[Rfam]
RNA sequence: ACUGUAAGGUGUUGCGUAGGCGUUGUGCACAGUGUUGGUUUUUGAACGGGACUGUGCAUCUCACCCGCGCAAAGCAUUGCAGA
Numbered sequence: 001a002c003u004g005u006a007a008g009g010u011g012u013u014g015c016g017u018a019g020g021c022g023u024u025g026u027g028c029a030c031a032g033u034g035u036u037g038g039u040u041u042u043u044g045a046a047c048g049g050g051a052c053u054g055u056g057c058a059u060c061u062c063a064c065c066c067g068c069g070c071a072a073a074g075c076a077u078u079g080c081a082g083a
Stems, first nucleotide, its partner, number of pairs: 003081005009075002013071005019065002022062001025059009